[Rfam]
RNA sequence: UUAUGCCUGGCUCCCUGUAUGCCACACAUACAGACCAAUUCAUGGGGUUAUUGGCUCUAUUGUGGGUGGCGUGCAAGGAGCCAAGCAUGC
Number, nucleotide and partner (000 for none) at each position: 001u000002u089003a088004u087005g086006c085007c000008u083009g082010g081011c080012u079013c078014c077015c000016u075017g074018u073019a072020u071021g070022c069023c068024a067025c000026a000027c064028a063029u062030a000031c000032a000033g000034a000035c000036c000037a000038a000039u000040u000041c000042a000043u000044g000045g000046g000047g000048u000049u000050a000051u000052u000053g000054g000055c000056u000057c000058u000059a000060u000061u000062g029063u028064g027065g000066g000067u024068g023069g022070c021071g020072u019073g018074c017075a016076a000077g014078g013079a012080g011081c010082c009083a008084a000085g006086c005087a004088u003089g002090c000

Record summary
The family of this 90-nucleotide RNA sequence from Musa balbisiana is "mir-160 microRNA precursor family". For this family Rfam cites "Prediction of plant microRNA targets" (Rhoades et al., Cell, 2002). Rfam 15.1 lists 1,502 matches to the family in 247 species. It scores 88 bits against the family's covariance model.